A member of the RNA family "Small nucleolar RNA Z206" from Oryza meridionalis, 129 nucleotides long. Lineage of the source: Eukaryota > Tracheophyta > Magnoliopsida > Poales > Oryza. On this family, see Chen et al., Nucleic Acids Res 2003: "The high diversity of snoRNAs in plants: identification and comparative study of 120 snoRNA genes from Oryza sativa". It scores 139 bits against the family's covariance model. The family's RNA type in Rfam is C/D-box small nucleolar RNA. Rfam links the family to the GO terms nucleolus and RNA processing.

[Rfam]
RNA sequence: GCAGCCGGAUGAGGUCAAGGUGAGCGCGACGGUGCGCCCGUCGACGGCGCUAUUGGGCGGCACCGACGACGCGGUGCAAGGAGGAGCACCUCAGAUGGUCGACGGGGUGAUGUGGUUCCGACCGGCGGC
Numbered sequence: 001g002c003a004g005c006c007g008g009a010u011g012a013g014g015u016c017a018a019g020g021u022g023a024g025c026g027c028g029a030c031g032g033u034g035c036g037c038c039c040g041u042c043g044a045c046g047g048c049g050c051u052a053u054u055g056g057g058c059g060g061c062a063c064c065g066a067c068g069a070c071g072c073g074g075u076g077c078a079a080g081g082a083g084g085a086g087c088a089c090c091u092c093a094g095a096u097g098g099u100c101g102a103c104g105g106g107g108u109g110a111u112g113u114g115g116u117u118c119c120g121a122c123c124g125g126c127g128g129c
Base pairs, nucleotide, nucleotide: 004126005125006124007123008122